Rfam assigns this 112-nucleotide sequence from Theropithecus gelada to the family "Y RNA". Y RNAs are components of the Ro ribonucleoprotein particle (Ro RNP), in association with Ro60 and La proteins. The Y RNAs and Ro60 and La proteins are well conserved, but the function of the Ro RNP is not known. In humans the RNA component can be one of four small RNAs -- hY1, hY3, hY4 and hY5. These small RNAs are predicted to fold into a conserved secondary structure containing three stem structures. Rfam classes the family as a non-coding RNA gene.
[Rfam]
RNA sequence: GGCUGGCCCAAGGUAGUGAGUUAUCUCAAUUGAUUGUUCACAGUCAGUUACAGAUCAAACUCCUUGUUCCACUCUUUCUCUCCUUCUCACUAGUGUGCUGGACUAGUCUUAG
Numbered sequence: 001g002g003c004u005g006g007c008c009c010a011a012g013g014u015a016g017u018g019a020g021u022u023a024u025c026u027c028a029a030u031u032g033a034u035u036g037u038u039c040a041c042a043g044u045c046a047g048u049u050a051c052a053g054a055u056c057a058a059a060c061u062c063c064u065u066g067u068u069c070c071a072c073u074c075u076u077u078c079u080c081u082c083c084u085u086c087u088c089a090c091u092a093g094u095g096u097g098c099u100g101g102a103c104u105a106g107u108c109u110u111a112g
Stems, first nucleotide, its partner, number of pairs: 001108006007101001009100002013096002015091006043073001047069001